[Rfam]
RNA: TPP riboswitch aptamer (THI element)
Organism: Sphingobium amiense
RNA sequence: CCGCAUUCCCCGGGGGACCGUCCACAGACGGUUGAGAGGCGGCUGAUGUAGCCGCGACCCGCUGAACCUGAUCCGGUUGACACCGGCGGAGGGAGGGAGCGCCUGUAUGAC
Numbered sequence: 001c002c003g004c005a006u007u008c009c010c011c012g013g014g015g016g017a018c019c020g021u022c023c024a025c026a027g028a029c030g031g032u033u034g035a036g037a038g039g040c041g042g043c044u045g046a047u048g049u050a051g052c053c054g055c056g057a058c059c060c061g062c063u064g065a066a067c068c069u070g071a072u073c074c075g076g077u078u079g080a081c082a083c084c085g086g087c088g089g090a091g092g093g094a095g096g097g098a099g100c101g102c103c104u105g106u107a108u109g110a111c
Stems, first nucleotide, its partner, number of pairs: 006099005011061004016055001017032005040054006067092003073086004